[Rfam]
RNA sequence: CGAAAAGGGUGUCAGGGGGAUGACAGAAUGCGUGCUCGCACGCAAGGAGUUUCAAACAUUUGACAACCAAGCCGGGCAUGAGUAAGCAGAGCGAAAGCCCGGAUUACGAAUGCCGGCGGAGAUUGCGGGAGCACGCAGUGCGGAGCAAUCUCCUUUCG
Numbered sequence: 001c002g003a004a005a006a007g008g009g010u011g012u013c014a015g016g017g018g019g020a021u022g023a024c025a026g027a028a029u030g031c032g033u034g035c036u037c038g039c040a041c042g043c044a045a046g047g048a049g050u051u052u053c054a055a056a057c058a059u060u061u062g063a064c065a066a067c068c069a070a071g072c073c074g075g076g077c078a079u080g081a082g083u084a085a086g087c088a089g090a091g092c093g094a095a096a097g098c099c100c101g102g103a104u105u106a107c108g109a110a111u112g113c114c115g116g117c118g119g120a121g122a123u124u125g126c127g128g129g130a131g132c133a134c135g136c137a138g139u140g141c142g143g144a145g146c147a148a149u150c151u152c153c154u155u156u157c158g
Base pairs, nucleotide, nucleotide: 001158002157004156005155006154007153009067010066011064015060016059018057021054022053023050024049030043031042032041033040034039071117072116073115074114076113077112078111079110082107083106084105085104089100091098092097120151121150122149123148124147125146126145131141132140133139134138
Shown here is a 158-nucleotide sequence, a member of the family "Clostridiales-1 RNA".